RNA sequence: CCACUUCACAUUAAGCUUCGCAUCGCUAUAUAGGGCGGGUCGGUUUCGGCCGACUAUGGCGAUAAAGUGUUGCGUACAAUAGGCACAACGGACCCGGGGGCAGUACCCGGCGGCUCCACCACCAGCGGCGAGAAACCGCCAUUGAUGCUGGGGCCGAACUAGGAUCGACGUGUGUUGAAAAGCGCAGUUUUUGCUCGGGCUGAGUAACCCGUUCAAGGCUCAAAACCAUAAGUGCCAAUGACAAUGAAGCACUCGCUCUUGCUGCGUAAUUUGAUGGCCUAACGGCCUGACUUUACAAAGCCAAAGCGCGGUUGGACCGACCGGGCAACAGAACGGAUUCCG
Number, nucleotide and partner (000 for none) at each position: 001c000002c000003a000004c000005u000006u000007c000008a000009c000010a000011u000012u000013a000014a000015g000016c000017u000018u000019c000020g000021c000022a000023u000024c000025g000026c000027u000028a000029u000030a000031u000032a000033g000034g000035g000036c000037g000038g000039g054040u053041c052042g051043g050044u000045u000046u000047c000048g000049g000050c043051c042052g041053a040054c039055u000056a000057u000058g195059g194060c193061g192062a191063u000064a000065a000066a000067g000068u000069g188070u187071u186072g185073c184074g183075u182076a000077c000078a000079a000080u000081a000082g000083g000084c174085a173086c172087a000088a171089c170090g169091g000092a000093c000094c110095c109096g108097g107098g106099g000100g000101c000102a000103g000104u000105a000106c098107c097108c096109g095110g094111c156112g155113g154114c153115u152116c151117c150118a000119c000120c000121a000122c000123c000124a000125g000126c000127g000128g000129c000130g000131a000132g000133a000134a000135a000136c000137c000138g000139c000140c000141a000142u000143u000144g000145a000146u000147g000148c000149u000150g117151g116152g115153g114154c113155c112156g111157a000158a000159c000160u000161a000162g000163g000164a000165u000166c000167g000168a000169c090170g089171u088172g086173u085174g084175u000176u000177g000178a000179a000180a000181a000182g075183c074184g073185c072186a071187g070188u069189u000190u000191u062192u061193g060194c059195u058196c211197g210198g209199g208200c000201u222202g221203a220204g000205u000206a000207a000208c199209c198210c197211g196212u000213u000214c000215a000216a000217g000218g000219c000220u203221c202222a201223a000224a000225a000226c000227c000228a000229u000230a000231a000232g000233u000234g000235c000236c000237a000238a000239u000240g000241a000242c000243a000244a000245u000246g000247a000248a000249g000250c000251a000252c000253u000254c000255g000256c000257u000258c000259u000260u000261g000262c000263u000264g000265c000266g000267u000268a000269a000270u000271u000272u000273g000274a000275u000276g000277g000278c000279c000280u000281a000282a000283c000284g000285g000286c000287c000288u000289g000290a000291c000292u000293u000294u000295a000296c000297a000298a000299a000300g000301c000302c000303a000304a000305a000306g000307c000308g000309c323310g322311g321312u320313u000314g340315g339316a338317c000318c336319g000320a312321c311322c310323g309324g000325g000326c000327a000328a000329c000330a000331g000332a000333a000334c000335g000336g318337a000338u316339u315340c314341c000342g000
Shown here is a 342-nucleotide sequence from Erythrobacter sp. QSSC1-22B, a member of the family "Alphaproteobacteria transfer-messenger RNA". Pairs were carried over by alignment from the consensus structure, which is taken from published work. Rfam describes the family as follows. Bacterial tmRNA, also known as 10Sa RNA or SsrA, is named for its dual tRNA and mRNA-like properties.